[Rfam]
Rfam assigns this 226-nucleotide RNA from Streptomyces carminius to the family "Streptomyces sRNA 4677". The source organism's lineage runs through Bacteria, Actinomycetes, Kitasatosporales, Streptomycetaceae and Streptomyces. It is annotated as a small RNA. A search with the family's covariance model found it, with a score of 60 bits. Rfam's curators write: Located in the intergenic region between anti-sigma factor SCO4677 gene and a putative regulatory protein gene SCO4676. scr4677 expression requires the SCO4677 activity and scr4677 sRNA itself seem to affect the levels of the SCO4676-associated transcripts. For this family Rfam cites "Complex intra-operonic dynamics mediated by a small RNA in Streptomyces coelicolor" (Hindra et al., PLoS One, 2014).
RNA sequence: GGGACCGGCGGGCCACGAACUCCCCCAAAGAACCUGAGGGAAAGAACCACCCACCCACCCUCCCCCGCACCGCCUGACGACCCGUCACCCGUGCGGGUGACCGGGUUGCGGGCGGGAGUCACGGGCGGUUACGUUCACCGAACCAAGCGUAAAAAAGUACGGCCCCCGGCCGGGACCGCGAAUCCCGAACGAGGGCCUCACCAAUCAGGAAGAAGAGACCUUCCCU
Numbered sequence: 001g002g003g004a005c006c007g008g009c010g011g012g013c014c015a016c017g018a019a020c021u022c023c024c025c026c027a028a029a030g031a032a033c034c035u036g037a038g039g040g041a042a043a044g045a046a047c048c049a050c051c052c053a054c055c056c057a058c059c060c061u062c063c064c065c066c067g068c069a070c071c072g073c074c075u076g077a078c079g080a081c082c083c084g085u086c087a088c089c090c091g092u093g094c095g096g097g098u099g100a101c102c103g104g105g106u107u108g109c110g111g112g113c114g115g116g117a118g119u120c121a122c123g124g125g126c127g128g129u130u131a132c133g134u135u136c137a138c139c140g141a142a143c144c145a146a147g148c149g150u151a152a153a154a155a156a157g158u159a160c161g162g163c164c165c166c167c168g169g170c171c172g173g174g175a176c177c178g179c180g181a182a183u184c185c186c187g188a189a190c191g192a193g194g195g196c197c198u199c200a201c202c203a204a205u206c207a208g209g210a211a212g213a214a215g216a217g218a219c220c221u222u223c224c225c226u
Base pairs, nucleotide, nucleotide: 001202007074008073009072010071085100086099087098088097089096090095112139115136116135161197162196163195164194165193167191168190172186173185174184175183208224209223210222211221212220